[Rfam]
RNA: TPP riboswitch aptamer (THI element)
RNA sequence: GCACCGGACACGGGGUGCGCCGCCCGGCGCUGAGAACAUACCCGCUGAACCUGAUCUAGUUCGAACUAGCGAAGGGAUGUUUAUCGGUGCAUUC
Number, nucleotide and partner (000 for none) at each position: 001g000002c000003a000004c000005c000006g082007g081008a080009c079010a078011c044012g043013g042014g041015g000016u038017g030018c029019g028020c027021c026022g000023c000024c000025c000026g021027g020028c019029g018030c017031u000032g000033a000034g000035a000036a000037c000038a016039u000040a000041c014042c013043c012044g011045c000046u000047g000048a000049a000050c075051c074052u073053g000054a000055u000056c069057u068058a067059g066060u000061u000062c000063g000064a000065a000066c059067u058068a057069g056070c000071g000072a000073a052074g051075g050076g000077a000078u010079g009080u008081u007082u006083a000084u000085c000086g000087g000088u000089g000090c000091a000092u000093u000094c000